RNA sequence: UGGACUGAUUAUUAUAUUCAACUGUAUUCACAACGUGAAAUAGGGGAUUACACUGUUUUAAAACGAAAAGUGAAUCAAUAAACAUAAUACACUCCU
Numbered sequence: 001u002g003g004a005c006u007g008a009u010u011a012u013u014a015u016a017u018u019c020a021a022c023u024g025u026a027u028u029c030a031c032a033a034c035g036u037g038a039a040a041u042a043g044g045g046g047a048u049u050a051c052a053c054u055g056u057u058u059u060a061a062a063a064c065g066a067a068a069a070g071u072g073a074a075u076c077a078a079u080a081a082a083c084a085u086a087a088u089a090c091a092c093u094c095c096u
Stems, first nucleotide, its partner, number of pairs: 002095003010089006017082002021079001023077002026075006034065003037059007
RNA: MIR6152 microRNA precursor family